[Rfam]
RNA sequence: AUCUGUUCCGAGGGGGGCCCCGUGAGGGGGCUGAGAUUCCGCCGGCUCGCCAUGAGCACCGCGGUGACCCUUAGGACCUGAUCCGGGUCAUGCCGGCGAAGGGACGGAAAAAGGUGCAAAG
Numbered sequence: 001a002u003c004u005g006u007u008c009c010g011a012g013g014g015g016g017g018c019c020c021c022g023u024g025a026g027g028g029g030g031c032u033g034a035g036a037u038u039c040c041g042c043c044g045g046c047u048c049g050c051c052a053u054g055a056g057c058a059c060c061g062c063g064g065u066g067a068c069c070c071u072u073a074g075g076a077c078c079u080g081a082u083c084c085g086g087g088u089c090a091u092g093c094c095g096g097c098g099a100a101g102g103g104a105c106g107g108a109a110a111a112a113g114g115u116g117c118a119a120a121g
Stems, first nucleotide, its partner, number of pairs: 006109005011071004016065001017031005039064004077102003083096004